The record is an 89-nucleotide RNA sequence from Gallus gallus, which matches "Small nucleolar RNA SNORD70" in Rfam. The pairing is the family consensus, mapped onto this sequence. Rfam's curators write: snoRNA HBII-234 belongs to the C/D family of snoRNAs. It is the human orthologue of the mouse MBII-234 and is predicted to guide 2'O-ribose methylation of the small 18S rRNA on position A512. It is hosted, together with HBII-95, by the core C/D box snoRNA protein encoding gene NOP5/NOP58. The source organism's lineage runs through Eukaryota, Dipnotetrapodomorpha, Sauria, Galliformes and Gallus. Rfam 15.1 lists 1,085 matches to the family in 579 species. The family's RNA type in Rfam is C/D-box small nucleolar RNA.
[Rfam]
RNA sequence: UAGUCUGUUGUCAAUGAUGGAUACCUGUUGGAACUGAAUGUAGCUGAUUUGAGUCAACAUUUCGUCACUACCACUGAGACAACAGACAG
Numbered sequence: 001u002a003g004u005c006u007g008u009u010g011u012c013a014a015u016g017a018u019g020g021a022u023a024c025c026u027g028u029u030g031g032a033a034c035u036g037a038a039u040g041u042a043g044c045u046g047a048u049u050u051g052a053g054u055c056a057a058c059a060u061u062u063c064g065u066c067a068c069u070a071c072c073a074c075u076g077a078g079a080c081a082a083c084a085g086a087c088a089g
Base pairs, nucleotide, nucleotide: 001089003087004086005085006084007083008082009081010080011079012078